The record is a 102-nucleotide RNA from Clostridium tarantellae, which matches "Purine riboswitch aptamer" in Rfam. Pairs were carried over by alignment from the consensus structure, which is taken from published work. The organism belongs to Clostridium, within Bacteria. It scores 84 bits against the family's covariance model.
[Rfam]
RNA sequence: AUACAUAAAAAGACACAUAUUCGUAUAAUUCUGGUAAUAUGGAUCGGAAGUAUCUACAAGCUCACCGUAAAUGAGUUUACUAUGGAUAGAAAUAUAUUUGAU
Numbered sequence: 001a002u003a004c005a006u007a008a009a010a011a012g013a014c015a016c017a018u019a020u021u022c023g024u025a026u027a028a029u030u031c032u033g034g035u036a037a038u039a040u041g042g043a044u045c046g047g048a049a050g051u052a053u054c055u056a057c058a059a060g061c062u063c064a065c066c067g068u069a070a071a072u073g074a075g076u077u078u079a080c081u082a083u084g085g086a087u088a089g090a091a092a093u094a095u096a097u098u099u100g101a102u
Stems, first nucleotide, its partner, number of pairs: 018088008029049007058078007